[Rfam]
RNA: azaaromatic riboswitch aptamer (yjdF RNA)
RNA sequence: ACAGGGACGAGCGAAAACACGGUCCGGUCGGUAGUCCGGGCGCCGUCGGUGCUGGUCGCCGCCGGUCAGUAACCUCCCUCCCAGGGUGUCCGGUUCGUCCUUCUCGAUC
Numbered sequence: 001a002c003a004g005g006g007a008c009g010a011g012c013g014a015a016a017a018c019a020c021g022g023u024c025c026g027g028u029c030g031g032u033a034g035u036c037c038g039g040g041c042g043c044c045g046u047c048g049g050u051g052c053u054g055g056u057c058g059c060c061g062c063c064g065g066u067c068a069g070u071a072a073c074c075u076c077c078c079u080c081c082c083a084g085g086g087u088g089u090c091c092g093g094u095u096c097g098u099c100c101u102u103c104u105c106g107a108u109c
Stems, first nucleotide, its partner, number of pairs: 004101008022041006042066004047061005076086004